glmS glucosamine-6-phosphate activated ribozyme aptamer: a 155-nucleotide RNA sequence from Vescimonas fastidiosa. Taxonomically the source falls in Vescimonas (Bacteria, Bacillati, Clostridia, Oscillospiraceae). Rfam classes the family as a riboswitch. Pairs were carried over by alignment from the consensus structure, which is taken from published work. About the family: This entry contains a glucosamine-6-phosphate activated ribozyme that is found in the mRNA for GlmS. GlmS is an enzyme that uses fructose-6-phosphate and glutamine to generate glucosamine-6-phosphate. The ribozyme catalyses self cleavage of the glmS mRNA that is thought to regulate GlmS activity.

[Rfam]
RNA sequence: GACCCAUCACAAGCGCCAGUGCCCGUCUCAGGCGGGACGACGAGGAGGAGAGAGUAUCGAGUUUUUCGGCGGAAGCUCUCCCGUACCGUCCGGGUACGCACACAGCCGGUAAAUAUGCGGGUGACCGCAAAACAGAGAGGCUGUGGCCGGACAGG
Numbered sequence: 001g002a003c004c005c006a007u008c009a010c011a012a013g014c015g016c017c018a019g020u021g022c023c024c025g026u027c028u029c030a031g032g033c034g035g036g037a038c039g040a041c042g043a044g045g046a047g048g049a050g051a052g053a054g055u056a057u058c059g060a061g062u063u064u065u066u067c068g069g070c071g072g073a074a075g076c077u078c079u080c081c082c083g084u085a086c087c088g089u090c091c092g093g094g095u096a097c098g099c100a101c102a103c104a105g106c107c108g109g110u111a112a113a114u115a116u117g118c119g120g121g122u123g124a125c126c127g128c129a130a131a132a133c134a135g136a137g138a139g140g141c142u143g144u145g146g147c148c149g150g151a152c153a154g155g
Base pairs, nucleotide, nucleotide: 022036023035024034025033026032027031047081048080049079050078051077057069058068059067060066082098083097084096085095086094087093101145102144103143104142105141106140107139116129117128118127119126120125